[Rfam]
The family of this 67-nucleotide RNA sequence from Poecilia reticulata is "Small nucleolar RNA SNORD58".
Gene Ontology terms of the family: nucleolus and RNA processing.
The family's consensus secondary structure was predicted with PFOLD.
Lineage of the source: Eukaryota > Opisthokonta > Chordata > Euteleostomi > Poecilia.
A search with the family's covariance model found it, with a score of 76 bits.
Rfam 15.1 lists 2,484 matches to the family in 680 species.
Rfam's curators write: snoRNA U58 is found in introns 1, 3 and 6 of the ribosomal protein RPL17 gene in humans.
It is annotated as a C/D-box small nucleolar RNA.
Clan: SNORD58 clan.
A reference for the family is Galardi et al. (2002), "Purified box C/D snoRNPs are able to reproduce site-specific 2'-O-methylation of target RNA in vitro", Mol Cell Biol.
RNA sequence: CUGCCAUGAUGACCUUCUUAGGACACCUUUGGAUUAAUGAUGAAAACAAACUCUUAGUCUGAGCAGC
Numbered sequence: 001c002u003g004c005c006a007u008g009a010u011g012a013c014c015u016u017c018u019u020a021g022g023a024c025a026c027c028u029u030u031g032g033a034u035u036a037a038u039g040a041u042g043a044a045a046a047c048a049a050a051c052u053c054u055u056a057g058u059c060u061g062a063g064c065a066g067c
Stems, first nucleotide, its partner, number of pairs: 001066004